[Rfam]
RNA sequence: AGCUUUGCGCAGUGGUAAUAUCGUAACGCAUGAAGUGUUUACUGAGGUGCGAUUAUUGCUAGUUGAAAACUUUAACCAAUACCUCGCCAUGGGGACGUGAAAUACCGUCCACUACGGCAAUUUUUGGAAGUCCGAAAGGGC
Dot-bracket structure: ...................(((((.((......(((....)))...)))))))................................(((..(.(((((........))))).)...)))...........((((....))))
RNA: U4 spliceosomal RNA